[Rfam]
RNA sequence: CUCUUAUCCUGAGAUGGCGGAGGAAACAGGUCCUUUGAAGCCCGGCAACCUGCCGUCCUGCUUUGCAGACGGAAAGGUGCUUACCUGUAGCAAGGCGAAAAGCCUUGGGCGAUAAGAG
Dot-bracket structure: ((((((((....(..(((...(((..[.[[)))......))))((((.(((.(.................).)..))))))....].].]((((((.....))))))...))))))))
Numbered sequence: 001c002u003c004u005u006a007u008c009c010u011g012a013g014a015u016g017g018c019g020g021a022g023g024a025a026a027c028a029g030g031u032c033c034u035u036u037g038a039a040g041c042c043c044g045g046c047a048a049c050c051u052g053c054c055g056u057c058c059u060g061c062u063u064u065g066c067a068g069a070c071g072g073a074a075a076g077g078u079g080c081u082u083a084c085c086u087g088u089a090g091c092a093a094g095g096c097g098a099a100a101a102g103c104c105u106u107g108g109g110c111g112a113u114a115a116g117a118g
Stems, first nucleotide, its partner, number of pairs: 001118008013043001016042003022033003027090001029088001030086001044081004049077002051073001053071001091107006